algC RNA: a 50-nucleotide RNA from Citrobacter freundii.
[Rfam]
RNA sequence: AAAAAUAUCUCCAUUCAGGAGAGGGCUAACUGUUGCCUGAAGAAGGGUAA
Numbered sequence: 001a002a003a004a005a006u007a008u009c010u011c012c013a014u015u016c017a018g019g020a021g022a023g024g025g026c027u028a029a030c031u032g033u034u035g036c037c038u039g040a041a042g043a044a045g046g047g048u049a050a
Stems, first nucleotide, its partner, number of pairs: 009021004